[Rfam]
RNA sequence: GUUGAUUAAACUCUGGCUAAGAACGCUGCGUCCUGCAGCAACGCCUGAGUGACCAACAUAGUAUUGG
Dot-bracket structure: ..........(((.(((.......(((((.....)))))...))).)))...((((.......))))

Overview:
A member of the RNA family "Bacillaceae-1 RNA" from Solibacillus sp. R5-41, 67 nucleotides long. The base pairs follow the family's consensus structure, which is taken from published work. The family's RNA type in Rfam is small RNA. A search with the family's covariance model found it, with a score of 55 bits.